[Rfam]
RNA sequence: GAGGCUGGAGGUCAACGUCCGACAGCGCGAUGCGCCCUCGGGCGCGCUUUCA
Numbered sequence: 001g002a003g004g005c006u007g008g009a010g011g012u013c014a015a016c017g018u019c020c021g022a023c024a025g026c027g028c029g030a031u032g033c034g035c036c037c038u039c040g041g042g043c044g045c046g047c048u049u050u051c052a
Stems, first nucleotide, its partner, number of pairs: 016044007025035004
The record is a 52-nucleotide RNA sequence from Microvirga sp. VF16, which matches "ffh sRNA" in Rfam. A search with the family's covariance model found it, with a score of 59 bits. The base pairs follow the family's consensus structure, which is taken from published work. Lineage of the source: Bacteria > Pseudomonadati > Pseudomonadota > Hyphomicrobiales > Microvirga.